[Rfam]
RNA sequence: UCGCGCACCAGGGGGUGUCCCGGCAAGGGGCUGAGAGGCUGCUGGCGCAUAUACUGCGCGGCGCGGCGACCCUUUGAACCUGAUCCGGAUCAUGCCGGCGAAGGGAUGGGAAGGGACCAGCCG
Number, nucleotide and partner (000 for none) at each position: 001u000002c000003g000004c000005g000006c000007a000008c109009c108010a107011g073012g072013g071014g070015g000016u000017g031018u030019c029020c028021c027022g000023g000024c000025a000026a000027g021028g020029g019030g018031c017032u000033g000034a000035g000036a000037g000038g067039c066040u065041g064042c063043u000044g000045g000046c000047g000048c000049a000050u000051a000052u000053a000054c000055u000056g000057c000058g000059c000060g000061g000062c000063g042064c041065g040066g039067c038068g000069a000070c014071c013072c012073u011074u000075u000076g000077a000078a000079c104080c103081u102082g000083a000084u000085c098086c097087g096088g095089a000090u000091c000092a000093u000094g000095c088096c087097g086098g085099c000100g000101a000102a081103g080104g079105g000106a000107u010108g009109g008110g000111a000112a000113g000114g000115g000116a000117c000118c000119a000120g000121c000122c000123g000

The record is a 123-nucleotide RNA sequence from Paracoccus sp. J56, which matches "TPP riboswitch aptamer (THI element)" in Rfam. Gene Ontology term of the family: thiamine pyrophosphate binding.